[Rfam]
RNA sequence: ACAUUUCUUCGGGGCAGGGUGAAAUUCCCGACCGACGGUGACAACGCCAGGUGGUGUUGAAGUCCGUGACCCGCGUAUAGCGGUGGACCCAGUGCAAGUCUGGGACCGACAGUAAAGUCUGGAUGGGAGAAGAAAUAA
Numbered sequence: 001a002c003a004u005u006u007c008u009u010c011g012g013g014g015c016a017g018g019g020u021g022a023a024a025u026u027c028c029c030g031a032c033c034g035a036c037g038g039u040g041a042c043a044a045c046g047c048c049a050g051g052u053g054g055u056g057u058u059g060a061a062g063u064c065c066g067u068g069a070c071c072c073g074c075g076u077a078u079a080g081c082g083g084u085g086g087a088c089c090c091a092g093u094g095c096a097a098g099u100c101u102g103g104g105a106c107c108g109a110c111a112g113u114a115a116a117g118u119c120u121g122g123a124u125g126g127g128a129g130a131a132g133a134a135a136u137a138a
Base pairs, nucleotide, nucleotide: 003136004135005134006133007132008131009130010129017029018028019027031118032117033108034107035067036066037065038064062106063105071083072082088104089103090102091101092100110121111120112119
Dot-bracket structure: ..((((((((......(((.......))).[[((((((.......................[[))))...((.........))....(((((.......)))))]])).(((....]]))).......))))))))..